[Rfam]
RNA sequence: AGCUUUGCGCAGAGGCGAUAUCAUAGCCGAUGAGGUUUAUCCGAGGCGUGAUUAUUGCUAGUUGAAAACUUUUCCCAAUACCCCGCCUGGGGGACGUGAAAUACCGUCCACCAUGGCAAUUUUUGUGAGCCCCUACGGGGG
Numbered sequence: 001a002g003c004u005u006u007g008c009g010c011a012g013a014g015g016c017g018a019u020a021u022c023a024u025a026g027c028c029g030a031u032g033a034g035g036u037u038u039a040u041c042c043g044a045g046g047c048g049u050g051a052u053u054a055u056u057g058c059u060a061g062u063u064g065a066a067a068a069c070u071u072u073u074c075c076c077a078a079u080a081c082c083c084c085g086c087c088u089g090g091g092g093g094a095c096g097u098g099a100a101a102u103a104c105c106g107u108c109c110a111c112c113a114u115g116g117c118a119a120u121u122u123u124u125g126u127g128a129g130c131c132c133c134u135a136c137g138g139g140g141g
Base pairs, nucleotide, nucleotide: 020052021051022050023049024048026047027046028045034042035041085117086116087115088113089112090111092109093108094107095106096105130141131140132139133138